Shown here is an 82-nucleotide RNA from Astyanax mexicanus, a member of the family "Small nucleolar RNA SNORD53/SNORD92".
The family's RNA type in Rfam is C/D-box small nucleolar RNA.
Rfam links the family to the GO terms nucleolus and RNA processing.
The literature on the family includes a 1996 paper in Cell by Kiss-Laszlo et al., "Site-specific ribose methylation of preribosomal RNA: a novel function for small nucleolar RNAs".
The pairing is the family consensus, mapped onto this sequence.
RNA sequence: UAAACAUGAUGAUGACAGAGAUUGGUUUCGCUUACUUGACUGAUGUCAUGUGAAGUAACAUCUCUCUUGGCUGUCUGAUUUA
Number, nucleotide and partner (000 for none) at each position: 001u082002a081003a080004a079005c000006a000007u000008g000009a000010u000011g000012a000013u000014g000015a000016c000017a000018g000019a000020g000021a000022u000023u000024g000025g000026u000027u000028u000029c000030g000031c000032u000033u000034a000035c000036u000037u000038g000039a000040c000041u000042g000043a000044u000045g000046u000047c000048a000049u000050g000051u000052g000053a000054a000055g000056u000057a000058a000059c000060a000061u000062c000063u000064c000065u000066c000067u000068u000069g000070g000071c000072u000073g000074u000075c000076u000077g000078a000079u004080u003081u002082a001